RNA sequence: AUAUAAAAAAACCUGCAGUUAUCCUUUAACUGCAGGUUCUUUUUAUUUUCUUCAUAAAAAAAGAAAAUAAAAAGAUAAAGGGAGAGGAGAAACCGGAGGAAGAACUUAUGGGGAAAUGUAAGUCUUCUCCGAAU
Dot-bracket structure: ..........(((((((((((.....)))))))))))(((((....((..((............))..)).......)))))...........((((.((((.(((((..........)))))))))))))...
RNA: ylbH leader
Organism: Gracilibacillus kekensis